This 105-nucleotide RNA sequence from Prunus dulcis belongs to the Rfam family "MIR6274 microRNA precursor family".
Pairs were carried over by alignment from the consensus structure, which was predicted with RNAalifold.
Nucleotides: 105
Stems, first nucleotide, its partner, number of pairs: 002104004011094009021084017039066004044061002047058003
Number, partner (000 for none) and nucleotide at each position: 001000g002104g003103a004102u005101a006000g007000u008000a009000c010000c011094u012093u013092u014091u015090g016089c017088u018087a019086u020000c021084u022083c023082c024081a025080g026079c027078u028077a029076a030075u031074a032073a033072c034071g035070c036069a037068a038000c039066g040065a041064c042063a043000c044061g045060u046000a047058g048057g049056a050000u051000a052000a053000c054000u055000u056049u057048u058047u059000c060045a061044c062000a063042u064041g065040u066039c067000a068037u069036u070035g071034u072033g073032u074031u075030a076029u077028u078027g079026g080025c081024u082023g083022g084021g085000a086019a087018u088017a089016g090015c091014a092013a093012a094011a095000u096000a097000g098000u099000g100000u101005u102004g103003u104002c105000u